[Rfam]
RNA sequence: ACUAAACAUAUUAAGAAAUGUCGUAUAAUCUUGGGAAUAUGGCCCGAAAGUUUCUACCGAGCUACCGUAAAUGGCUUGACUACGAGCAACUCUGUAUAUACA
Dot-bracket structure: ....................(((((...(.(((((.......))))).)........(((((((.......)))))))..))))).................
The record is a 102-nucleotide RNA sequence from Priestia veravalensis, which matches "Purine riboswitch aptamer" in Rfam. Rfam links the family to the GO term purine nucleobase biosynthetic process. From the family's description: Riboswitches are metabolite binding domains within certain messenger RNAs that serve as precision sensors for their corresponding targets. Rfam 15.1 lists 4,097 matches to the family in 1,411 species.